[Rfam]
The record is a 127-nucleotide RNA from Amphibacillus marinus, which matches "ylbH leader" in Rfam. A search with the family's covariance model found it, with a score of 62 bits. The pairing is the family consensus, mapped onto this sequence.

RNA sequence: AUGUAAAAAAGCCUGCAGAUAUGUAUGCUCUGCAGGCCCUUUUUAGUUCGACCAAUUAGAACCAAAAAGGCAAAGGGAGAGGAGAAACCGGAAAAGCAACUAUGGGGAAAAGUAGGCUUUUCCGUCU
Numbered sequence: 001a002u003g004u005a006a007a008a009a010a011g012c013c014u015g016c017a018g019a020u021a022u023g024u025a026u027g028c029u030c031u032g033c034a035g036g037c038c039c040u041u042u043u044u045a046g047u048u049c050g051a052c053c054a055a056u057u058a059g060a061a062c063c064a065a066a067a068a069g070g071c072a073a074a075g076g077g078a079g080a081g082g083a084g085a086a087a088c089c090g091g092a093a094a095a096g097c098a099a100c101u102a103u104g105g106g107g108a109a110a111a112g113u114a115g116g117c118u119u120u121u122c123c124g125u126c127u
Stems, first nucleotide, its partner, number of pairs: 011037009038077005047065002050062001089124008100115003